[Rfam]
RNA sequence: AACUCAUCCAGAGCAGUGGAGGGACUGGCCCUAUGAAGCUGCGGCAACCCUUGCGAAAGCAAAACGGUGCCAAUUCCGUUAGGUUCUACCUAUAAGAUGAGAG
Numbered sequence: 001a002a003c004u005c006a007u008c009c010a011g012a013g014c015a016g017u018g019g020a021g022g023g024a025c026u027g028g029c030c031c032u033a034u035g036a037a038g039c040u041g042c043g044g045c046a047a048c049c050c051u052u053g054c055g056a057a058a059g060c061a062a063a064a065c066g067g068u069g070c071c072a073a074u075u076c077c078g079u080u081a082g083g084u085u086c087u088a089c090c091u092a093u094a095a096g097a098u099g100a101g102a103g
Base pairs, nucleotide, nucleotide: 003101004100005099006098007097008096013042014041015040016039017038021031022030023029026078027077028076043071044070045069046068048067049066051062052061053060075095080092081091082090083089084088